The family of this 73-nucleotide RNA from Caenorhabditis briggsae is "mir-35 microRNA precursor family". The sequence is in the family's curated seed alignment.
[Rfam]
RNA sequence: GGACAUUCGCGGGUUUUUUCCUUCGGUGAUAUUCGAAGAAUCGCUAUCACCGGGUGAAAACUUGCAAGUGUCU
Numbered sequence: 001g002g003a004c005a006u007u008c009g010c011g012g013g014u015u016u017u018u019u020c021c022u023u024c025g026g027u028g029a030u031a032u033u034c035g036a037a038g039a040a041u042c043g044c045u046a047u048c049a050c051c052g053g054g055u056g057a058a059a060a061c062u063u064g065c066a067a068g069u070g071u072c073u
Base pairs, nucleotide, nucleotide: 001073002072003071004070005069006068007067009065010064011063012062013061014060015059016058017057018056022054023053024052025051026050027049028048029047030046031045034043035042036041
Its Rfam clan is "mir-36 clan".